The family of this 122-nucleotide RNA sequence from Bacillus sp. MRMR6 is "PyrR binding site".
From the family's description: This family represents the PyrR binding site and terminator structure.
A search with the family's covariance model found it, with a score of 55 bits.
The base pairs follow the family's consensus structure, which is taken from published work.
Taxonomically the source falls in Bacillus (Bacteria, Bacillota, Caryophanales, Bacillaceae).
[Rfam]
RNA sequence: UAUGCCUUUAAAACAGUCCUGUGAGGCUGAGAAGGAAACGGUUUGAAUUGGGUUCUCUAUCUACCCAUUUCUUAAUGCUGUACGUCUACCUCUCAACCCACAAGGUGAGAGGUUUUUUAUUU
Numbered sequence: 001u002a003u004g005c006c007u008u009u010a011a012a013a014c015a016g017u018c019c020u021g022u023g024a025g026g027c028u029g030a031g032a033a034g035g036a037a038a039c040g041g042u043u044u045g046a047a048u049u050g051g052g053u054u055c056u057c058u059a060u061c062u063a064c065c066c067a068u069u070u071c072u073u074a075a076u077g078c079u080g081u082a083c084g085u086c087u088a089c090c091u092c093u094c095a096a097c098c099c100a101c102a103a104g105g106u107g108a109g110a111g112g113u114u115u116u117u118u119a120u121u122u
Stems, first nucleotide, its partner, number of pairs: 003037001005035005014029005042074001045071003049067005084117001088113008097104001